[Rfam]
RNA sequence: GUAUUCAGGUAAUCGCUGCAAAGCUUGACUUUGUAGAGGAAAGUCCAUGCUCACACGGUUCUGAGAUGUCCGUAGUGUUUGUGCUCGGUGAAUUAAUAAGCCGGGGCUUCGCGCAUAGCGCGUUGACGGCGGGAAUAAGUCCUAAGUUUACUUAACGUAAAUAUGGAUUAGGUUCCCCGAACAGUGCCACAGAAACGUAGUCGGUUCGGAAACGGAUCGAAUGGAACGCGGUAAACCCCACAAGUGAGAAACCCAAACUAUGGUAGGGGCACUCUUCUGAAGGAAAUGAACAGACGAAGAGACGAGUAUUCAUACUCGUAGAUAGAUGAUUACCACCCAGCGUACGAGGCGUAAGCCGUUUGAGUACUAGGGAACAAAACAUGGCUUAUCGAA
Numbered sequence: 001g002u003a004u005u006c007a008g009g010u011a012a013u014c015g016c017u018g019c020a021a022a023g024c025u026u027g028a029c030u031u032u033g034u035a036g037a038g039g040a041a042a043g044u045c046c047a048u049g050c051u052c053a054c055a056c057g058g059u060u061c062u063g064a065g066a067u068g069u070c071c072g073u074a075g076u077g078u079u080u081g082u083g084c085u086c087g088g089u090g091a092a093u094u095a096a097u098a099a100g101c102c103g104g105g106g107c108u109u110c111g112c113g114c115a116u117a118g119c120g121c122g123u124u125g126a127c128g129g130c131g132g133g134a135a136u137a138a139g140u141c142c143u144a145a146g147u148u149u150a151c152u153u154a155a156c157g158u159a160a161a162u163a164u165g166g167a168u169u170a171g172g173u174u175c176c177c178c179g180a181a182c183a184g185u186g187c188c189a190c191a192g193a194a195a196c197g198u199a200g201u202c203g204g205u206u207c208g209g210a211a212a213c214g215g216a217u218c219g220a221a222u223g224g225a226a227c228g229c230g231g232u233a234a235a236c237c238c239c240a241c242a243a244g245u246g247a248g249a250a251a252c253c254c255a256a257a258c259u260a261u262g263g264u265a266g267g268g269g270c271a272c273u274c275u276u277c278u279g280a281a282g283g284a285a286a287u288g289a290a291c292a293g294a295c296g297a298a299g300a301g302a303c304g305a306g307u308a309u310u311c312a313u314a315c316u317c318g319u320a321g322a323u324a325g326a327u328g329a330u331u332a333c334c335a336c337c338c339a340g341c342g343u344a345c346g347a348g349g350c351g352u353a354a355g356c357c358g359u360u361u362g363a364g365u366a367c368u369a370g371g372g373a374a375c376a377a378a379a380c381a382u383g384g385c386u387u388a389u390c391g392a393a
Base pairs, nucleotide, nucleotide: 004393005392006391007389008334009333010332011331012330013329014328016036017035018034019033020032021031041387042386043385045384046383047382048381049380050248051247052246053245054244055073056072057071058070061068079243080242081241082240083239084105085104086103087102088101089100106127107125110122111121112120113119114118128238129237131177132176133175134174139168140167141166142165146162147161148160149159150158151157184236185235186232187231188230201220202219203218204217205216206215207214208213252268253267254266272301273300274299275298276297277296302319303318304317305316306315307314337372338371342367343366344365345364

A member of the RNA family "Bacterial RNase P class B" from Sporosarcina sp. Marseille-Q4063, 393 nucleotides long. NCBI's taxonomy places the organism under Bacteria, Bacillati, Bacillota, Caryophanaceae, Sporosarcina. The family's RNA type in Rfam is ribozyme. Rfam's curators write: Ribonuclease P (RNase P) is a ubiquitous endoribonuclease, found in archaea, bacteria and eukarya as well as chloroplasts and mitochondria. Its best characterised activity is the generation of mature 5'-ends of tRNAs by cleaving the 5'-leader elements of precursor-tRNAs. Cellular RNase Ps are ribonucleoproteins. Clan: RNaseP clan.